[Rfam]
Nucleotides: 109
Base pairs, nucleotide, nucleotide: 004108005107007105009103010102012100014098016096017095018094019093020092021091022090023089024088025087026086027085028084030082031081032080036076037075038074039073040072041071042070043069045067046066047065
Number, partner (000 for none) and nucleotide at each position: 001000g002000u003000u004108g005107u006000c007105a008000c009103a010102u011000c012100c013000a014098u015000c016096u017095c018094a019093a020092u021091c022090c023089a024088c025087a026086u027085g028084u029000c030082u031081u032080g033000g034000g035000a036076u037075g038074g039073a040072u041071u042070g043069g044000g045067g046066u047065a048000u049000a050000a051000u052000u053000u054000a055000g056000u057000u058000u059000a060000a061000g062000u063000u064000c065047u066046a067045u068000u069043c070042u071041a072040a073039u074038c075037c076036a077000c078000c079000c080032c081031a082030a083000u084028a085027c086026a087025u088024g089023u090022g091021g092020a093019u094018u095017g096016a097000u098014g099000c100012g101000a102010a103009u104000c105007u106000a107005a108004c109000u